A member of the RNA family "Small nucleolar RNA Z152/R70/R12/" from Cicer arietinum, 108 nucleotides long. It is annotated as a C/D-box small nucleolar RNA. The family's consensus secondary structure was predicted with PFOLD. NCBI's taxonomy places the organism under Eukaryota, eudicotyledons, Fabales, Cicereae, Cicer. On this family, see Barneche et al., J Mol Biol 2001: "Identification of 66 box C/D snoRNAs in Arabidopsis thaliana: extensive gene duplications generated multiple isoforms predicting new ribosomal RNA 2'-O-methylation sites". The match comes from Rfam's covariance-model search (82 bits).

RNA sequence: GGUGCAAUGAUGAGAUGAAAACACCUAAUCGUGUUUUGGGCAGUGGACGUAACCUACAAGUUGUGCCGUGAGCCUAUUUAAUAACGACUUCUCCUUCCACUUAGCACU
Numbered sequence: 001g002g003u004g005c006a007a008u009g010a011u012g013a014g015a016u017g018a019a020a021a022c023a024c025c026u027a028a029u030c031g032u033g034u035u036u037u038g039g040g041c042a043g044u045g046g047a048c049g050u051a052a053c054c055u056a057c058a059a060g061u062u063g064u065g066c067c068g069u070g071a072g073c074c075u076a077u078u079u080a081a082u083a084a085c086g087a088c089u090u091c092u093c094c095u096u097c098c099a100c101u102u103a104g105c106a107c108u
Base pairs, nucleotide, nucleotide: 001108002107003106004105005104